[Rfam]
RNA sequence: UUGCGCCUAACGCUGAGUUCCGUAAGGGAACGGGGGACCCAAAGUCAUUGGGGUGAAUCCAGAACUAUUGGUAGGGCCACUCUUCGGUCCGAACCCGGCAGCUAACCUCGUAAGCGUCGGAGAGGGGAGAG
Numbered sequence: 001u002u003g004c005g006c007c008u009a010a011c012g013c014u015g016a017g018u019u020c021c022g023u024a025a026g027g028g029a030a031c032g033g034g035g036g037a038c039c040c041a042a043a044g045u046c047a048u049u050g051g052g053g054u055g056a057a058u059c060c061a062g063a064a065c066u067a068u069u070g071g072u073a074g075g076g077c078c079a080c081u082c083u084u085c086g087g088u089c090c091g092a093a094c095c096c097g098g099c100a101g102c103u104a105a106c107c108u109c110g111u112a113a114g115c116g117u118c119g120g121a122g123a124g125g126g127g128a129g130a131g
Stems, first nucleotide, its partner, number of pairs: 011116004018029003030111006040050002051096003059071004074090004
RNA: c-di-AMP riboswitch aptamer (ydaO/yuaA leader)